The family of this 139-nucleotide RNA from Chimaeribacter arupi is "CpoB/ybgF ICR thermometer". NCBI's taxonomy places the organism under Bacteria, Pseudomonadati, Gammaproteobacteria, Enterobacterales, Chimaeribacter. Pairs were carried over by alignment from the consensus structure. About the family: Imprinting control region from upstream of cpoB/ybgF (tol/pal system protein). The literature on the family includes a 2016 paper in Proc Natl Acad Sci U S A by Righetti et al., "Temperature-responsive in vitro RNA structurome of Yersinia pseudotuberculosis".
RNA sequence: CCAGAUCGCUAUCGUUUCUUACGGUAAAGAGAAACCUGCCGUACUGGGCCAUGACGAGUCGGCUUACGCCAAAAACCGUCGUGCCGUACUGGUAUACUAAGAGAAUCGCAUGAGCAGUAACUUCAGACAUUCUUUAUUA
Dot-bracket structure: ((((..((.....(((((((........)))))))....))..))))......(..((...(..(..(......((.(((((((.((.((...........)).)).)))))).).)).....)..)..)...))..).